[Rfam]
RNA sequence: CCUGAGUCUACAUACUUCUUCAUAUGCCCAUAUGGAGUCGGACGGCUAUGGAAUGUUAAGAAGUAUGUAUCUUUGGG
Numbered sequence: 001c002c003u004g005a006g007u008c009u010a011c012a013u014a015c016u017u018c019u020u021c022a023u024a025u026g027c028c029c030a031u032a033u034g035g036a037g038u039c040g041g042a043c044g045g046c047u048a049u050g051g052a053a054u055g056u057u058a059a060g061a062a063g064u065a066u067g068u069a070u071c072u073u074u075g076g077g
Base pairs, nucleotide, nucleotide: 009069010068011067012066013065014064015063016062017061018060019059020058022056023055024054025053028051029050030049031048032047

Shown here is a 77-nucleotide RNA from Thamnophis sirtalis, a member of the family "mir-1 microRNA precursor family". Rfam describes the family as follows. This family represents the microRNA (miRNA) mir-1 family. miRNAs are transcribed as ~70nt precursors (modelled here) and subsequently processed by the Dicer enzyme to give a ~22nt product. In this case the mature sequence comes from the 3' arm of the precursor. Gene Ontology terms of the family: RISC complex and miRNA-mediated post-transcriptional gene silencing.